Source information:
A member of the RNA family "t44 RNA" from Legionella drancourtii, 85 nucleotides long. Pairs were carried over by alignment from the consensus structure, which was predicted with LocARNA. The organism belongs to Legionella drancourtii, within Bacteria. It scores 66 bits against the family's covariance model. The family's RNA type in Rfam is small RNA. Rfam describes the family as follows. This family consists of a number of bacterial RNA genes of between 135 and 170 bases in length. The t44 gene has been identified in several species of enteric bacteria but homologs have also been identified in Pseudomonas and Coxiella species.
[Rfam]
RNA sequence: AAUACGGCGCUUUAAAUACACACACGUUUCGGCACGUACGUUAGGGUCCCUAGUGGGUUUCGUAUGGGGAACGUGGAGGCAUAAC
Number, nucleotide and partner (000 for none) at each position: 001a000002a000003u000004a000005c000006g000007g000008c000009g000010c000011u000012u000013u000014a000015a000016a000017u000018a000019c000020a000021c000022a000023c075024a074025c073026g072027u071028u070029u069030c068031g000032g000033c000034a000035c066036g065037u064038a063039c062040g061041u000042u000043a058044g000045g000046g000047u000048c057049c056050c055051u000052a000053g000054u000055g050056g049057g048058u043059u000060u000061c040062g039063u038064a037065u036066g035067g000068g030069g029070a028071a027072c026073g025074u024075g023076g000077a000078g000079g000080c000081a000082u000083a000084a000085c000